[Rfam]
RNA sequence: UGUAAAUACCCUCCUUGGGUGUUUCCUCCCUAGACUUGAACCGCGCCGCAAGCGCGGUUUUUUUUGAAAGGG
Numbered sequence: 001u002g003u004a005a006a007u008a009c010c011c012u013c014c015u016u017g018g019g020u021g022u023u024u025c026c027u028c029c030c031u032a033g034a035c036u037u038g039a040a041c042c043g044c045g046c047c048g049c050a051a052g053c054g055c056g057g058u059u060u061u062u063u064u065u066g067a068a069a070g071g072g
Base pairs, nucleotide, nucleotide: 008020009019010018011017041057042056043055044054045053046052

The family of this 72-nucleotide sequence from Shinella sp. WSJ-2 is "Makes More Granules Regulator RNA (mmgR)".
Pairs were carried over by alignment from the consensus structure.
The match comes from Rfam's covariance-model search (60 bits).